[Rfam]
Nucleotides: 079
Base pairs, nucleotide, nucleotide: 008073009072010071011070012069013068014067015066016065017064018063019062021060022059023058024057029052030051031050032048033047034046035045036043
Number, partner (000 for none) and nucleotide at each position: 001000c002000u003000u004000a005000u006000g007000c008073g009072g010071c011070a012069g013068c014067a015066u016065a017064g018063g019062a020000c021060u022059g023058a024057a025000u026000u027000a028000u029052g030051g031050g032048a033047g034046g035045a036043c037000u038000u039000a040000u041000a042000u043036g044000a045035u046034c047033c048032u049000a050031c051030c052029c053000c054000c055000u056000u057024u058023u059022c060021a061000u062019u063018u064017u065016u066015a067014u068013g069012c070011u071010g072009c073008u074000u075000c076000g077000g078000a079000g